[Rfam]
The record is a 127-nucleotide RNA sequence from Microcaecilia unicolor, which matches "Small nucleolar RNA U109" in Rfam. On this family, see Reddy et al., Biochem Biophys Res Commun 1981: "Pseudouridine residues in the 5'-terminus of uridine-rich nuclear RNA I (U1 RNA)". It scores 67 bits against the family's covariance model. The source organism's lineage runs through Eukaryota, Chordata, Craniata, Teleostomi and Microcaecilia. The family has 26 seed sequences and 1,405 matches in Rfam 15.1. By type it is an H/ACA-box small nucleolar RNA.
RNA sequence: AGACUUAGGAAAAAGCCUACUUGCUUUAGAGUGGGACUGUUGAGUUGUGUGCUAGAAUAAAGAUGGAGCUAUCAGGGCCACCAGUCAUAAAGCAAAGACUGAGUGGUAGUAUAUUGCUCCUACAUUU
Numbered sequence: 001a002g003a004c005u006u007a008g009g010a011a012a013a014a015g016c017c018u019a020c021u022u023g024c025u026u027u028a029g030a031g032u033g034g035g036a037c038u039g040u041u042g043a044g045u046u047g048u049g050u051g052c053u054a055g056a057a058u059a060a061a062g063a064u065g066g067a068g069c070u071a072u073c074a075g076g077g078c079c080a081c082c083a084g085u086c087a088u089a090a091a092g093c094a095a096a097g098a099c100u101g102a103g104u105g106g107u108a109g110u111a112u113a114u115u116g117c118u119c120c121u122a123c124a125u126u127u
Stems, first nucleotide, its partner, number of pairs: 001050001003048002016035007065120004077107002081103001082101005088095001